[Rfam]
Rfam assigns this 102-nucleotide sequence from Neomonachus schauinslandi to the family "Y RNA".
It is annotated as a non-coding RNA gene.
The match comes from Rfam's covariance-model search (48 bits).
The base pairs follow the family's consensus structure, which is taken from published work.
About the family: Y RNAs are components of the Ro ribonucleoprotein particle (Ro RNP), in association with Ro60 and La proteins. The Y RNAs and Ro60 and La proteins are well conserved, but the function of the Ro RNP is not known.
RNA sequence: AGCUGAACCAAGCACAGUGAUGUUUAAAAUUAAUUGAUCAUAACCAGUUACGUAUUUCUUUAUUCCUUCUUAACUCUCACUGCUUCAUUUGACUAGCCUUAA
Number, nucleotide and partner (000 for none) at each position: 001a000002g097003c096004u095005g094006a000007a000008c091009c000010a090011a089012g000013c000014a000015c000016a081017g080018u079019g078020a077021u000022g076023u000024u000025u000026a000027a000028a064029a063030u062031u000032a060033a059034u000035u000036g000037a000038u000039c000040a000041u000042a000043a000044c000045c000046a000047g000048u000049u000050a000051c000052g000053u000054a000055u000056u000057u000058c000059u033060u032061u000062a030063u029064u028065c000066c000067u000068u000069c000070u000071u000072a000073a000074c000075u000076c022077u020078c019079a018080c017081u016082g000083c000084u000085u000086c000087a000088u000089u011090u010091g008092a000093c000094u005095a004096g003097c002098c000099u000100u000101a000102a000